[Rfam]
Rfam assigns this 83-nucleotide sequence to the family "eL15-Euryarchaeota ribosomal protein leader". It is one of the family's seed sequences. The family's consensus secondary structure is taken from published work. On this family, see Eckert and Weinberg, BMC Microbiol 2020: "Discovery of 20 novel ribosomal leader candidates in bacteria and archaea".
RNA sequence: CCUGCCUGUGCAGGUCGGGAUGUGGCUGGCGGGGUCUCUGACCCCGGGCAGGCGGCACCGCCGCCGGAGAGCUGAACCACACA
Numbered sequence: 001c002c003u004g005c006c007u008g009u010g011c012a013g014g015u016c017g018g019g020a021u022g023u024g025g026c027u028g029g030c031g032g033g034g035u036c037u038c039u040g041a042c043c044c045c046g047g048g049c050a051g052g053c054g055g056c057a058c059c060g061c062c063g064c065c066g067g068a069g070a071g072c073u074g075a076a077c078c079a080c081a082c083a
Stems, first nucleotide, its partner, number of pairs: 001014005017078002024073004